[Rfam]
Annotation
Shown here is a 180-nucleotide sequence from Thermoanaerobacteraceae bacterium SP2, a member of the family "Lysine riboswitch aptamer". The family has 47 seed sequences and 3,224 matches in Rfam 15.1. The literature on the family includes a 2003 paper in Proc Natl Acad Sci U S A by Grundy et al., "The L box regulon: Lysine sensing by leader RNAs of bacterial lysine biosynthesis genes".
RNA sequence: AGGUGCGGUAGAGGCGCGGUGUACCAUUAGUAACCUUUGGAGGCGGCAGCCGAUGAAAAAGGCCAAAGGGGCCACCGCCGAAGUCCUGAUGCCGGCAGGCAGCAGGGCUGGGCCUGCAUCGAAGAGAUGCAGGACUGUCACUUAAGGUUCCCGAGCCUUAGGUGGAGCGCUAUCACACUA
Dot-bracket structure: ......(((((....((((((..((........(((((...................))))).......)).))))))...(((((((.((((....)))).)))))))((.((((((((.....)))))))).)).((((((((((........))))))))))....)))))......
Numbered sequence: 001a002g003g004u005g006c007g008g009u010a011g012a013g014g015c016g017c018g019g020u021g022u023a024c025c026a027u028u029a030g031u032a033a034c035c036u037u038u039g040g041a042g043g044c045g046g047c048a049g050c051c052g053a054u055g056a057a058a059a060a061g062g063c064c065a066a067a068g069g070g071g072c073c074a075c076c077g078c079c080g081a082a083g084u085c086c087u088g089a090u091g092c093c094g095g096c097a098g099g100c101a102g103c104a105g106g107g108c109u110g111g112g113c114c115u116g117c118a119u120c121g122a123a124g125a126g127a128u129g130c131a132g133g134a135c136u137g138u139c140a141c142u143u144a145a146g147g148u149u150c151c152c153g154a155g156c157c158u159u160a161g162g163u164g165g166a167g168c169g170c171u172a173u174c175a176c177a178c179u180a
Stems, first nucleotide, its partner, number of pairs: 007174005016078006024071002034062005082109007090101004110136002113133008138165010